[Rfam]
RNA sequence: GGAGGUGGGCCCUCCGGAGCCGGCAUACAGGUGCAGGUUUCAAACCACCAUUGGGUGCUGCAACCAAAAGUUGUGGUGCUGAGCGCGUAUGGAAAAGGCUGCGGUAGCAGUCAGGU
Numbered sequence: 001g002g003a004g005g006u007g008g009g010c011c012c013u014c015c016g017g018a019g020c021c022g023g024c025a026u027a028c029a030g031g032u033g034c035a036g037g038u039u040u041c042a043a044a045c046c047a048c049c050a051u052u053g054g055g056u057g058c059u060g061c062a063a064c065c066a067a068a069a070g071u072u073g074u075g076g077u078g079c080u081g082a083g084c085g086c087g088u089a090u091g092g093a094a095a096a097g098g099c100u101g102c103g104g105u106a107g108c109a110g111u112c113a114g115g116u
Stems, first nucleotide, its partner, number of pairs: 001015005016041006023034004046115001048092004053086001054080002057077003061073004097112006
Overview
Rfam assigns this 116-nucleotide RNA sequence from Clostridium pasteurianum to the family "Group II catalytic intron D1-D4-2". Group II introns are found in rRNA, tRNA and mRNA of organelles in fungi, plants and protists, and also in mRNA in bacteria. Gene Ontology term of the family: Group II intron splicing. The match comes from Rfam's covariance-model search (106 bits).